[Rfam]
tRNA: a 71-nucleotide RNA from Ructibacterium gallinarum. It scores 70 bits against the family's covariance model.
RNA sequence: GCAGGCGUAGUUUAGUGGCAAAACAUCAGCUUCCCAAGCUGAGGUUGUGGGUUCGAUUCCCAUCGCCUGCU
Dot-bracket structure: (((((((..((((.......)))).(((((.......)))))....(((((.......)))))))))))).
Numbered sequence: 001g002c003a004g005g006c007g008u009a010g011u012u013u014a015g016u017g018g019c020a021a022a023a024c025a026u027c028a029g030c031u032u033c034c035c036a037a038g039c040u041g042a043g044g045u046u047g048u049g050g051g052u053u054c055g056a057u058u059c060c061c062a063u064c065g066c067c068u069g070c071u
Stems, first nucleotide, its partner, number of pairs: 001070007010024004026042005047063005